RNA sequence: GAUAACCAAGGAUAAUUCUAGGGUCGAGAGUAGGAUUAACUAAUCUAACUUCUCCACCACCAGGUGCCCAAGUAUCAUAAGCUCCUCCUCCAAACAUCCAGUUAGCUGUGAAGAAUAAAGCACCAACACCUAAAACGAUUAAGUGAUAACCAAGGAUAUUGGUCAUUUGGUUUUUAUCUCUCCA
Numbered sequence: 001g002a003u004a005a006c007c008a009a010g011g012a013u014a015a016u017u018c019u020a021g022g023g024u025c026g027a028g029a030g031u032a033g034g035a036u037u038a039a040c041u042a043a044u045c046u047a048a049c050u051u052c053u054c055c056a057c058c059a060c061c062a063g064g065u066g067c068c069c070a071a072g073u074a075u076c077a078u079a080a081g082c083u084c085c086u087c088c089u090c091c092a093a094a095c096a097u098c099c100a101g102u103u104a105g106c107u108g109u110g111a112a113g114a115a116u117a118a119a120g121c122a123c124c125a126a127c128a129c130c131u132a133a134a135a136c137g138a139u140u141a142a143g144u145g146a147u148a149a150c151c152a153a154g155g156a157u158a159u160u161g162g163u164c165a166u167u168u169g170g171u172u173u174u175u176a177u178c179u180c181u182c183c184a
Stems, first nucleotide, its partner, number of pairs: 142181002145178003152173003